The record is a 118-nucleotide RNA sequence from Trichechus manatus, which matches "Small nucleolar RNA SNORA61" in Rfam. Rfam's curators write: ACA61 is a member of the H/ACA class of snoRNA that guide the sites of modification of uridines to pseudouridines. Taxonomically the source falls in Trichechus manatus (Eukaryota, Teleostomi, Sarcopterygii, Eutheria). The family's consensus secondary structure was predicted with PFOLD. It is annotated as an H/ACA-box small nucleolar RNA.
RNA sequence: ACCCUGCAGUUCCGUUUCCCAUCAGAUCUGAACGCUAGUCUGGGUGGUCAUAAAGGAGAAAAAGGAACAUUGAAACUGACCUCAGUGCUUGUAGCACAUGGGCUAGAUUUAGACAGGU
Numbered sequence: 001a002c003c004c005u006g007c008a009g010u011u012c013c014g015u016u017u018c019c020c021a022u023c024a025g026a027u028c029u030g031a032a033c034g035c036u037a038g039u040c041u042g043g044g045u046g047g048u049c050a051u052a053a054a055g056g057a058g059a060a061a062a063a064g065g066a067a068c069a070u071u072g073a074a075a076c077u078g079a080c081c082u083c084a085g086u087g088c089u090u091g092u093a094g095c096a097c098a099u100g101g102g103c104u105a106g107a108u109u110u111a112g113a114c115a116g117g118u
Stems, first nucleotide, its partner, number of pairs: 004058002007055001019047005025040003076106003080102003